Rfam assigns this 385-nucleotide RNA from Homoserinimonas aerilata to the family "Bacterial RNase P class A". By type it is a ribozyme. NCBI's taxonomy places the organism under Bacteria, Actinomycetota, Actinomycetes, Microbacteriaceae, Homoserinimonas. The literature on the family includes a 2013 paper in RNA Biol by Beauregard et al., "Identification and characterization of small RNAs in Yersinia pestis". Ribonuclease P (RNase P) is a ubiquitous endoribonuclease, found in archaea, bacteria and eukarya as well as chloroplasts and mitochondria. Gene Ontology terms of the family: tRNA processing, dimeric ribonuclease P complex and ribonuclease P activity.
RNA sequence: UGGGUCGGCAAGACGGUCGCGUCACGCGCUGCUUCUGAAAAGGUGCAGCGCGUGCCGAGGAACGUCCGGGCUCCACAGGGCAGGAUGGUGGGUAACACCCACCCGGGGUAACCCGCGAGAAAGUGCAACAGAAAGCAGACCGCCACUGACUUCGGUCAGGGGUAAGGGUGAAACGGUGGUGUAAGAGACCACCAGCGGCCCGAGUGAUCGGGUCGGCUGGGUAAACCUCGUCCGGAGCAAGGUCAGACAGAAGGCGUCACGGGUGGCCCGCCCAGUCUUCGGGUAGACCGCUGGAGGGCUGCGGCAACGUAGUCCCGAGAUAGAUGGCCGUCCAUCGCCGCUCGCGCGGCAGGGACAGAACCCGGCGUAUCAGCCGGCCCAUUCG
Numbered sequence: 001u002g003g004g005u006c007g008g009c010a011a012g013a014c015g016g017u018c019g020c021g022u023c024a025c026g027c028g029c030u031g032c033u034u035c036u037g038a039a040a041a042g043g044u045g046c047a048g049c050g051c052g053u054g055c056c057g058a059g060g061a062a063c064g065u066c067c068g069g070g071c072u073c074c075a076c077a078g079g080g081c082a083g084g085a086u087g088g089u090g091g092g093u094a095a096c097a098c099c100c101a102c103c104c105g106g107g108g109u110a111a112c113c114c115g116c117g118a119g120a121a122a123g124u125g126c127a128a129c130a131g132a133a134a135g136c137a138g139a140c141c142g143c144c145a146c147u148g149a150c151u152u153c154g155g156u157c158a159g160g161g162g163u164a165a166g167g168g169u170g171a172a173a174c175g176g177u178g179g180u181g182u183a184a185g186a187g188a189c190c191a192c193c194a195g196c197g198g199c200c201c202g203a204g205u206g207a208u209c210g211g212g213u214c215g216g217c218u219g220g221g222u223a224a225a226c227c228u229c230g231u232c233c234g235g236a237g238c239a240a241g242g243u244c245a246g247a248c249a250g251a252a253g254g255c256g257u258c259a260c261g262g263g264u265g266g267c268c269c270g271c272c273c274a275g276u277c278u279u280c281g282g283g284u285a286g287a288c289c290g291c292u293g294g295a296g297g298g299c300u301g302c303g304g305c306a307a308c309g310u311a312g313u314c315c316c317g318a319g320a321u322a323g324a325u326g327g328c329c330g331u332c333c334a335u336c337g338c339c340g341c342u343c344g345c346g347c348g349g350c351a352g353g354g355a356c357a358g359a360a361c362c363c364g365g366c367g368u369a370u371c372a373g374c375c376g377g378c379c380c381a382u383u384c385g
Stems, first nucleotide, its partner, number of pairs: 001381009011370001012332007020057002023054010062368003066365005071237004078269004083233005088102005103117001104115004118228002123226002125222002140167002142163003146159005175193006195217001196215008241289004250280006261273004296315008